[Rfam]
This 75-nucleotide RNA sequence from Nocardia farcinica belongs to the Rfam family "6C RNA". The sequence is in the family's curated seed alignment. Pairs were carried over by alignment from the consensus structure, which is taken from published work. For this family Rfam cites "Identification of 22 candidate structured RNAs in bacteria using the CMfinder comparative genomics pipeline" (Weinberg et al., Nucleic Acids Res, 2007).
RNA sequence: CGUGUUCAGCCCGACCCCCCGGGGCUGAACCCCGACGGCCCCAGCCUCCUCCCCCCCCGGCUGGGGCCGUCCUCU
Numbered sequence: 001c002g003u004g005u006u007c008a009g010c011c012c013g014a015c016c017c018c019c020c021g022g023g024g025c026u027g028a029a030c031c032c033c034g035a036c037g038g039c040c041c042c043a044g045c046c047u048c049c050u051c052c053c054c055c056c057c058c059g060g061c062u063g064g065g066g067c068c069g070u071c072c073u074c075u
Stems, first nucleotide, its partner, number of pairs: 002033001004031001005029008034071013